Overview: Shown here is a 165-nucleotide sequence from Streptomyces sp. Tue6028, a member of the family "c-di-AMP riboswitch aptamer (ydaO/yuaA leader)". The source organism's lineage runs through Bacteria, Bacillati, Actinomycetota, Actinomycetes and Streptomyces. A search with the family's covariance model found it, with a score of 42 bits.
[Rfam]
RNA sequence: GAUGUCCGGUCGACAGAAGUGGAUCGGCAGGAGUGGAGGACCCAGCACGACGGGCCGCCGGAGAGAUCCGGGCGGUCCUUGGGGUGAAGCCGCAGUACGCGGCCGGGCUACUUCGCCAGCCCGAAUCCGACAGGUCAUCCUUCACAGGCGGCUGACGAAGGGUUG
Numbered sequence: 001g002a003u004g005u006c007c008g009g010u011c012g013a014c015a016g017a018a019g020u021g022g023a024u025c026g027g028c029a030g031g032a033g034u035g036g037a038g039g040a041c042c043c044a045g046c047a048c049g050a051c052g053g054g055c056c057g058c059c060g061g062a063g064a065g066a067u068c069c070g071g072g073c074g075g076u077c078c079u080u081g082g083g084g085u086g087a088a089g090c091c092g093c094a095g096u097a098c099g100c101g102g103c104c105g106g107g108c109u110a111c112u113u114c115g116c117c118a119g120c121c122c123g124a125a126u127c128c129g130a131c132a133g134g135u136c137a138u139c140c141u142u143c144a145c146a147g148g149c150g151g152c153u154g155a156c157g158a159a160g161g162g163u164u165g
Stems, first nucleotide, its partner, number of pairs: 005031002033145006043081002082128003090102004105122004